[Rfam]
RNA: Bacterial RNase P class A
Organism: Photorhabdus laumondii
RNA sequence: GGAGUUGACUAGACAGUCGCUGCUUUAUCAUUAAUCCUUUGGAUGAUAGAUGGAGGAGAGGAAAGUCCGGGCUCCACAGGGCAGGGUGCCAGAUAACGUCUGGGGGGUGAAAGCCCACGACCAGUGCAACAGAGAGCAAACCGCCGAUGGCUUACUUAAUGUAGGAUCAGGUAAGGGUGAAAGGGUGCGGUAAGAGCGCACCGCACGGCUGGUAACAGUUCGUGGCACGGUAAACUCCACUCGGAGCAAGGCCAAAUAGGGGUUCAUUAGGUACGGCCCGUAUCGAACCCGGGUAGGCUGCUUGAGCCAGUGCGUAAGUGCUGGCCUAGAUGAAUGAUUGUCCACGACAGAACCCGGCUUAUCGGUCAACUUCACAA
Numbered sequence: 001g002g003a004g005u006u007g008a009c010u011a012g013a014c015a016g017u018c019g020c021u022g023c024u025u026u027a028u029c030a031u032u033a034a035u036c037c038u039u040u041g042g043a044u045g046a047u048a049g050a051u052g053g054a055g056g057a058g059a060g061g062a063a064a065g066u067c068c069g070g071g072c073u074c075c076a077c078a079g080g081g082c083a084g085g086g087u088g089c090c091a092g093a094u095a096a097c098g099u100c101u102g103g104g105g106g107g108u109g110a111a112a113g114c115c116c117a118c119g120a121c122c123a124g125u126g127c128a129a130c131a132g133a134g135a136g137c138a139a140a141c142c143g144c145c146g147a148u149g150g151c152u153u154a155c156u157u158a159a160u161g162u163a164g165g166a167u168c169a170g171g172u173a174a175g176g177g178u179g180a181a182a183g184g185g186u187g188c189g190g191u192a193a194g195a196g197c198g199c200a201c202c203g204c205a206c207g208g209c210u211g212g213u214a215a216c217a218g219u220u221c222g223u224g225g226c227a228c229g230g231u232a233a234a235c236u237c238c239a240c241u242c243g244g245a246g247c248a249a250g251g252c253c254a255a256a257u258a259g260g261g262g263u264u265c266a267u268u269a270g271g272u273a274c275g276g277c278c279c280g281u282a283u284c285g286a287a288c289c290c291g292g293g294u295a296g297g298c299u300g301c302u303u304g305a306g307c308c309a310g311u312g313c314g315u316a317a318g319u320g321c322u323g324g325c326c327u328a329g330a331u332g333a334a335u336g337a338u339u340g341u342c343c344a345c346g347a348c349a350g351a352a353c354c355c356g357g358c359u360u361a362u363c364g365g366u367c368a369a370c371u372u373c374a375c376a377a
Stems, first nucleotide, its partner, number of pairs: 001373010011362001012342007020058002023055006063360003067357005072246004079279004084242005089103005104118001105116004119237002124235002126231002141176002143172003148169003152165002184202006203226001204224005209218003250299004260290006270284005306325008